[Rfam]
RNA sequence: UGAUACCAUCAGAGUCAAAAGGUCAAAAAUCCGAUGCAAGCUUGCUUGCAAGAGGAUUUCUGAUCUCUUGACUCGCCAAAAACAUGAGUAAGUAGCCAUUUUUUGAAGAAAAAUGAGCGGAUUACGAAUGUUUUUGAAGAUUGCGAGAGUGCAAAGCACGCAGCAAUCUGGUAUCA
Numbered sequence: 001u002g003a004u005a006c007c008a009u010c011a012g013a014g015u016c017a018a019a020a021g022g023u024c025a026a027a028a029a030u031c032c033g034a035u036g037c038a039a040g041c042u043u044g045c046u047u048g049c050a051a052g053a054g055g056a057u058u059u060c061u062g063a064u065c066u067c068u069u070g071a072c073u074c075g076c077c078a079a080a081a082a083c084a085u086g087a088g089u090a091a092g093u094a095g096c097c098a099u100u101u102u103u104u105g106a107a108g109a110a111a112a113a114u115g116a117g118c119g120g121a122u123u124a125c126g127a128a129u130g131u132u133u134u135u136g137a138a139g140a141u142u143g144c145g146a147g148a149g150u151g152c153a154a155a156g157c158a159c160g161c162a163g164c165a166a167u168c169u170g171g172u173a174u175c176a
Stems, first nucleotide, its partner, number of pairs: 001176007013073004020066006027059006035051001036049005078135008088125004095118002097115008138169007149159004
Dot-bracket structure: (((((((.....((((...((((((.((((((..((((((....))))).)..)))))).))))))...))))....((((((((..((((...((((((((((...)))))))).))...))))..))))))))..(((((((....((((...))))...))))))))))))))

The record is a 176-nucleotide sequence from Clostridiales bacterium KLE1615, which matches "Clostridiales-1 RNA" in Rfam. Rfam classes the family as a small RNA. A search with the family's covariance model found it, with a score of 134 bits.